RNA sequence: UCCAGGGCUGACGCCCUGGACUAAUAUGACAGCGCCCUUUCAGGGCG
Numbered sequence: 001u002c003c004a005g006g007g008c009u010g011a012c013g014c015c016c017u018g019g020a021c022u023a024a025u026a027u028g029a030c031a032g033c034g035c036c037c038u039u040u041c042a043g044g045g046c047g
Stems, first nucleotide, its partner, number of pairs: 001020008034046005

About this RNA:
Shown here is a 47-nucleotide RNA sequence from Candidatus Moduliflexus flocculans, a member of the family "Acido-Lenti-1 RNA". Taxonomically the source falls in Candidatus Moduliflexus (Bacteria, Candidatus Moduliflexia, Candidatus Moduliflexales, Candidatus Moduliflexaceae).